[Rfam]
RNA: mir-1302 microRNA precursor family
RNA sequence: CUUUUAGUAUAAGUCUGUCCCAUGUAAUAUUUAGGAUAAACUUAUACUAAAA
Number, nucleotide and partner (000 for none) at each position: 001c000002u000003u000004u000005u000006a048007g047008u046009a045010u044011a043012a042013g000014u040015c000016u038017g000018u036019c035020c034021c000022a031023u000024g000025u000026a000027a000028u000029a000030u000031u022032u000033a000034g020035g019036a018037u000038a016039a000040a014041c000042u012043u011044a010045u009046a008047c007048u006049a000050a000051a000052a000